[Rfam]
RNA sequence: UGCCUGGUCCCGCGCAAUGAGCGCCUGCGAACCGUGUCAGGUUGGGAACAAAGCAGCACUAAGCGGGAUUGUUCAUGUGCCGUGGGGGUGCCUGACAUAA
Numbered sequence: 001u002g003c004c005u006g007g008u009c010c011c012g013c014g015c016a017a018u019g020a021g022c023g024c025c026u027g028c029g030a031a032c033c034g035u036g037u038c039a040g041g042u043u044g045g046g047a048a049c050a051a052a053g054c055a056g057c058a059c060u061a062a063g064c065g066g067g068a069u070u071g072u073u074c075a076u077g078u079g080c081c082g083u084g085g086g087g088g089u090g091c092c093u094g095a096c097a098u099a100a
Stems, first nucleotide, its partner, number of pairs: 004094001006092003009086006015077001017076006024067005034059004042051003